[Rfam]
RNA sequence: GUGCGGCGCUCUGGAAAGCAGCUUCCCCGUCGGGACGACGGGACAAGCUCACCGAAGGAGUAAACCGGCCGCUCCGCGCCAUCUUCGCGCGAGAGACGCUCCGGCAAAUCUCUCAGGUUCCUGCGACAGAGGGGGCGCG
Numbered sequence: 001g002u003g004c005g006g007c008g009c010u011c012u013g014g015a016a017a018g019c020a021g022c023u024u025c026c027c028c029g030u031c032g033g034g035a036c037g038a039c040g041g042g043a044c045a046a047g048c049u050c051a052c053c054g055a056a057g058g059a060g061u062a063a064a065c066c067g068g069c070c071g072c073u074c075c076g077c078g079c080c081a082u083c084u085u086c087g088c089g090c091g092a093g094a095g096a097c098g099c100u101c102c103g104g105c106a107a108a109u110c111u112c113u114c115a116g117g118u119u120c121c122u123g124c125g126a127c128a129g130a131g132g133g134g135g136c137g138c139g
Stems, first nucleotide, its partner, number of pairs: 007133001009131005020049004051118003054114002058112003065104004